[Rfam]
This 151-nucleotide RNA sequence from Miscanthus lutarioriparius belongs to the Rfam family "Small nucleolar RNA snoR2/U65". The family is grouped with related families in Rfam's "SNORA65 clan". A reference for the family is Shaw et al. (1998), "Localization and processing from a polycistronic precursor of novel snoRNAs in maize", J Cell Sci. Gene Ontology terms of the family: nucleolus and RNA processing. NCBI's taxonomy places the organism under Eukaryota, Streptophyta, Euphyllophyta, Andropogonodae, Miscanthus. The family's RNA type in Rfam is H/ACA-box small nucleolar RNA.

RNA sequence: GUCCUGAUGCCACGUCUCCAGUAGCCAUGGGCAUUGACUGGUGAUGCUAUGAUUAGGCCUAUACAGAGUGGUCUCCAUGUUUCACAUGUUUAUAGGAACCUGGGGACUGCAUCUCAAUCUGUCCUCAGAGCCGGUAUUUGUGAUUACAGUU
Numbered sequence: 001g002u003c004c005u006g007a008u009g010c011c012a013c014g015u016c017u018c019c020a021g022u023a024g025c026c027a028u029g030g031g032c033a034u035u036g037a038c039u040g041g042u043g044a045u046g047c048u049a050u051g052a053u054u055a056g057g058c059c060u061a062u063a064c065a066g067a068g069u070g071g072u073c074u075c076c077a078u079g080u081u082u083c084a085c086a087u088g089u090u091u092a093u094a095g096g097a098a099c100c101u102g103g104g105g106a107c108u109g110c111a112u113c114u115c116a117a118u119c120u121g122u123c124c125u126c127a128g129a130g131c132c133g134g135u136a137u138u139u140g141u142g143a144u145u146a147c148a149g150u151u
Stems, first nucleotide, its partner, number of pairs: 003057006009050001013046004018041001020039003024032003082143005095132002100128003104124004